[Rfam]
Nucleotides: 078
Base pairs, nucleotide, nucleotide: 001078002077003076004075005072006071008069009068
Number, partner (000 for none) and nucleotide at each position: 001078g002077g003076g004075u005072c006071g007000a008069u009068a010000a011000u012000g013000a014000g015000a016000a017000c018000u019000c020000a021000u022000a023000c024000u025000g026000u027000a028000u029000c030000a031000a032000a033000a034000a035000g036000a037000g038000a039000u040000g041000a042000u043000g044000a045000c046000u047000u048000a049000a050000u051000c052000a053000u054000a055000u056000u057000u058000a059000a060000u061000a062000g063000a064000a065000u066000u067000a068009u069008a070000c071006u072005g073000a074000c075004g076003c077002c078001c